[Rfam]
RNA sequence: AUCAUAGAUACAACUUUUAGAGAGCAUUCUAAAGCUUGUAUCUAUGCUGGUAAUGAAUAAAGACACCGCAUAGAGCAAAAUCUAUGUGGUGUUUUGCUUUU
Number, nucleotide and partner (000 for none) at each position: 001a048002u000003c046004a045005u044006a043007g042008a041009u040010a039011c038012a000013a000014c000015u034016u033017u032018u031019a030020g029021a000022g000023a000024g000025c000026a000027u000028u000029c020030u019031a018032a017033a016034g015035c000036u000037u000038g011039u010040a009041u008042c007043u006044a005045u004046g003047c000048u001049g000050g000051u000052a000053a000054u000055g000056a000057a000058u000059a000060a000061a000062g000063a000064c000065a090066c089067c088068g087069c086070a085071u084072a083073g082074a081075g000076c000077a000078a000079a000080a000081u074082c073083u072084a071085u070086g069087u068088g067089g066090u065091g000092u000093u000094u000095u000096g000097c000098u000099u000100u000101u000
Shown here is a 101-nucleotide sequence from Enterococcus canis, a member of the family "trpB ncRNA motif".
NCBI's taxonomy places the organism under Bacteria, Bacillati, Bacillota, Enterococcaceae, Enterococcus.
It scores 60 bits against the family's covariance model.
trpB ncRNA motif was reported as a strong cis regulatory motif candidate, with potential to be a cis regulatory riboswitch type, it have been identified in Firmicutes and Fusobacteria. The motif have been recognised upstream of an uncharacterized ABC transporter with strong homology to amino acid transporters. It is also occasionally located upstream of trpB gene, that codes for a tryptophan synthase.